This 592-nucleotide part of an RNA from a Spirochaetota bacterium belongs to the Rfam family "Bacterial small subunit ribosomal RNA".

RNA sequence: UGACGGGGGCUCGCACAAGUGGUGGAGCAUGUGGUUUAAUUCGAUGAUACGCGAAAAACCUUACCUGGGUUUAAACGUUUUGUGCUCAGCUAUGAAAGUAGCUUUUCCUUCGGGACGCAAAGCGAGGUGUUGCAUGGCUGUCGUCAGCUCGUGUUGUGAGAUGUUGGGUUAAGUCCCGCAACGAGCGCAACCCAUUUCCUAUGUUGCUAAUAGUUUGUUCGCAAGCUAAGGACUCUUAGGAUACUGCCCGGGCAACCGGGAGGAAGGCGUGGAUGACGUUAAGUCCUCAUGACCCUUAUGUCCAGGGCUACACACGUGCUACAAUGGGUUCUACAAAGAGAUGCCAAACUGUAAAGUCUAGCCGAACUCAAAAAAGAACUCUCAGUUCGGAUUGAAGUCUGUAACUCGACUUCAUGAAGCUGGAAUCACUAGUAAUCGCGGAUCAGCAUGCCGCGGUGAAUACGUUCUCGAGCCUUGUACACACCGCCCGUCAAACCAUCCGAGUUAAGUUUACCCGAAGUUGUUGUCCGAACCUGCAAGGGACGGAGACACCUAAGGUAGAAUUAGUAAGGAGGGUUAAGUCGUAACAAGG
Numbered sequence: 001u002g003a004c005g006g007g008g009g010c011u012c013g014c015a016c017a018a019g020u021g022g023u024g025g026a027g028c029a030u031g032u033g034g035u036u037u038a039a040u041u042c043g044a045u046g047a048u049a050c051g052c053g054a055a056a057a058a059c060c061u062u063a064c065c066u067g068g069g070u071u072u073a074a075a076c077g078u079u080u081u082g083u084g085c086u087c088a089g090c091u092a093u094g095a096a097a098g099u100a101g102c103u104u105u106u107c108c109u110u111c112g113g114g115a116c117g118c119a120a121a122g123c124g125a126g127g128u129g130u131u132g133c134a135u136g137g138c139u140g141u142c143g144u145c146a147g148c149u150c151g152u153g154u155u156g157u158g159a160g161a162u163g164u165u166g167g168g169u170u171a172a173g174u175c176c177c178g179c180a181a182c183g184a185g186c187g188c189a190a191c192c193c194a195u196u197u198c199c200u201a202u203g204u205u206g207c208u209a210a211u212a213g214u215u216u217g218u219u220c221g222c223a224a225g226c227u228a229a230g231g232a233c234u235c236u237u238a239g240g241a242u243a244c245u246g247c248c249c250g251g252g253c254a255a256c257c258g259g260g261a262g263g264a265a266g267g268c269g270u271g272g273a274u275g276a277c278g279u280u281a282a283g284u285c286c287u288c289a290u291g292a293c294c295c296u297u298a299u300g301u302c303c304a305g306g307g308c309u310a311c312a313c314a315c316g317u318g319c320u321a322c323a324a325u326g327g328g329u330u331c332u333a334c335a336a337a338g339a340g341a342u343g344c345c346a347a348a349c350u351g352u353a354a355a356g357u358c359u360a361g362c363c364g365a366a367c368u369c370a371a372a373a374a375a376g377a378a379c380u381c382u383c384a385g386u387u388c389g390g391a392u393u394g395a396a397g398u399c400u401g402u403a404a405c406u407c408g409a410c411u412u413c414a415u416g417a418a419g420c421u422g423g424a425a426u427c428a429c430u431a432g433u434a435a436u437c438g439c440g441g442a443u444c445a446g447c448a449u450g451c452c453g454c455g456g457u458g459a460a461u462a463c464g465u466u467c468u469c470g471a472g473c474c475u476u477g478u479a480c481a482c483a484c485c486g487c488c489c490g491u492c493a494a495a496c497c498a499u500c501c502g503a504g505u506u507a508a509g510u511u512u513a514c515c516c517g518a519a520g521u522u523g524u525u526g527u528c529c530g531a532a533c534c535u536g537c538a539a540g541g542g543a544c545g546g547a548g549a550c551a552c553c554u555a556a557g558g559u560a561g562a563a564u565u566a567g568u569a570a571g572g573a574g575g576g577u578u579a580a581g582u583c584g585u586a587a588c589a590a591g592g
Stems, first nucleotide, its partner, number of pairs: 001481002003478003007475007015465002019429005024322001026320008034311002040055004064306007076124003080120005088103006106115003126295002129293004135289002137284003140280001142278002147186006153162003165178004192272004197241005203235001207230002211228006244263002247260005326381007338369003343362002348357003388419001393414007435457007484591001486588001489584002494578004499573003504568005510562006520553001522551004527547004533542002
NCBI's taxonomy places the organism under Bacteria, Pseudomonadati, Spirochaetota. Gene Ontology terms of the family: ribosome and structural constituent of ribosome. It scores 1467 bits against the family's covariance model.